ASdes TB sRNA: a 68-nucleotide RNA sequence from Mycolicibacterium chubuense.
A search with the family's covariance model found it, with a score of 70 bits.
The base pairs follow the family's consensus structure, which is taken from published work.
A reference for the family is Arnvig and Young (2009), "Identification of small RNAs in Mycobacterium tuberculosis", Mol Microbiol.
RNA sequence: UUCGCGACCGGAUCCACCUCACGGGUGACCACCAGGUAGUUGCGCAGCGCGAUCGCGUGCAGGUGCUC
Numbered sequence: 001u002u003c004g005c006g007a008c009c010g011g012a013u014c015c016a017c018c019u020c021a022c023g024g025g026u027g028a029c030c031a032c033c034a035g036g037u038a039g040u041u042g043c044g045c046a047g048c049g050c051g052a053u054c055g056c057g058u059g060c061a062g063g064u065g066c067u068c
Base pairs, nucleotide, nucleotide: 005062008059011030013028015027016026017025018024035056038053040052041051042050043049044048